[Rfam]
RNA sequence: AGAGGCCCCCUGUGGCCAGGGUGGAAUGCUUGCCUUGUCGCUGUGGCAACAAAGCAAGCAUUCUGCCAGGCCACUCAUGCUGUCCUC
Numbered sequence: 001a002g003a004g005g006c007c008c009c010c011u012g013u014g015g016c017c018a019g020g021g022u023g024g025a026a027u028g029c030u031u032g033c034c035u036u037g038u039c040g041c042u043g044u045g046g047c048a049a050c051a052a053a054g055c056a057a058g059c060a061u062u063c064u065g066c067c068a069g070g071c072c073a074c075u076c077a078u079g080c081u082g083u084c085c086u087c
Base pairs, nucleotide, nucleotide: 004084005083006082012074013073014072015071016070017069020067021066022065023064024063025062026061027060028059029058030057031056032055033054037050038049040047041046

Record summary: A member of the RNA family "mir-9195 microRNA precursor family" from Cnephaeus nilssonii, 87 nucleotides long. It scores 94 bits against the family's covariance model. Taxonomically the source falls in Cnephaeus (Eukaryota, Chordata, Craniata, Mammalia). Gene Ontology terms of the family: RISC complex and miRNA-mediated post-transcriptional gene silencing.